[Rfam]
Bacterial RNase P class A: a 334-nucleotide RNA sequence from Solirubrobacter ginsenosidimutans.
Nucleotides: 334
Base pairs, nucleotide, nucleotide: 002329003328004327005326006325007324008323009322010321011319012299013298014297015296016295017294018293020037021036022035023034024033025032026031042317043316044315046314047313048312049311050310051229052228053227054226058261059260060259061258063225064224065223066222067221068082069081070080071079072078083097084095085094086093087092098220099219103218104217105214106213107212120161121160122157123156124155128153129152130151131150132149169187170186171185172184173183174182189209190207191206192205193204194203195202196201233280234279235278236277242271243270244269245268246267254264255263256262
Number, partner (000 for none) and nucleotide at each position: 001000c002329u003328g004327g005326c006325g007324g008323a009322u010321c011319g012299a013298g014297u015296a016295g017294u018293c019000g020037c021036g022035g023034g024033g025032g026031c027000g028000a029000a030000u031026g032025c033024c034023c035022u036021c037020g038000a039000g040000g041000a042317a043316a044315g045000u046314c047313c048312g049311g050310a051229c052228a053227u054226c055000a056000c057000a058261g059260g060259g061258c062000g063225a064224g065223g066222u067221g068082g069081u070080c071079g072078g073000u074000a075000a076000c077000g078072c079071c080070g081069a082068c083097c084095c085094g086093g087092g088000g089000a090000a091000a092087c093086c094085c095084g096000c097083g098220g099219g100000a101000a102000a103218g104217u105214g106213c107212c108000a109000c110000a111000g112000a113000a114000a115000a116000c117000a118000c119000a120161c121160c122157g123156c124155c125000u126000a127000a128153g129152g130151c131150c132149g133000c134000c135000c136000u137000c138000g139000u140000u141000c142000g143000c144000g145000a146000g147000a148000g149132c150131g151130g152129c153128c154000c155124g156123g157122c158000a159000a160121g161120g162000u163000u164000g165000a166000a167000a168000a169187g170186g171185u172184g173183c174182g175000g176000u177000a178000a179000g180000a181000g182174c183173g184172c185171a186170c187169c188000g189209g190207c191206g192205u193204c194203g195202c196201g197000g198000u199000g200000a201196c202195g203194c204193g205192g206191c207190g208000g209189c210000c211000a212107g213106g214105c215000a216000a217104a218103c219099c220098c221067c222066a223065c224064c225063u226054g227053a228052u229051g230000c231000a232000a233280g234279a235278c236277c237000a238000a239000g240000c241000c242271g243270g244269a245268c246267c247000g248000u249000u250000u251000g252000c253000a254264g255263g256262c257000u258061g259060c260059c261058c262256g263255u264254c265000a266000a267246g268245g269244u270243c271242c272000a273000g274000g275000u276000c277236g278235g279234u280233u281000g282000c283000a284000g285000a286000g287000a288000u289000a290000g291000a292000u293018g294017g295016c296015u297014g298013c299012u300000c301000a302000a303000g304000a305000c306000a307000g308000a309000a310050u311049c312048c313047g314046g315044c316043u317042u318000a319011u320000a321010g322009a323008u324007c325006c326005g327004c328003u329002a330000c331000g332000g333000a334000a
The base pairs follow the family's consensus structure, which is taken from published work.